The family of this 132-nucleotide sequence from Acipenser ruthenus is "Small nucleolar RNA SNORA28". Lineage of the source: Eukaryota > Eumetazoa > Acipenseriformes > Acipenserini > Acipenser. ACA28 is a member of the H/ACA class of snoRNA that guide the sites of modification of uridines to pseudouridines. The family's RNA type in Rfam is H/ACA-box small nucleolar RNA. The literature on the family includes a 2001 paper in EMBO J by Huttenhofer et al., "RNomics: an experimental approach that identifies 201 candidates for novel, small, non-messenger RNAs in mouse".
RNA sequence: AAGCAACACUCUGUGUCAGAAGUUGGAAACAACAAGUAUUUGGCACAAUUUCAGCUUGCCCAAGUAAACUACAGUCUGACCUAUUCUAGCACUCUCUUCAUUGGGAUUUGCUGUUGAGCGGACUGUUACAAA
Numbered sequence: 001a002a003g004c005a006a007c008a009c010u011c012u013g014u015g016u017c018a019g020a021a022g023u024u025g026g027a028a029a030c031a032a033c034a035a036g037u038a039u040u041u042g043g044c045a046c047a048a049u050u051u052c053a054g055c056u057u058g059c060c061c062a063a064g065u066a067a068a069c070u071a072c073a074g075u076c077u078g079a080c081c082u083a084u085u086c087u088a089g090c091a092c093u094c095u096c097u098u099c100a101u102u103g104g105g106a107u108u109u110g111c112u113g114u115u116g117a118g119c120g121g122a123c124u125g126u127u128a129c130a131a132a
Stems, first nucleotide, its partner, number of pairs: 009054002012047004017042004022037003072125007082118001084116001087113004093106004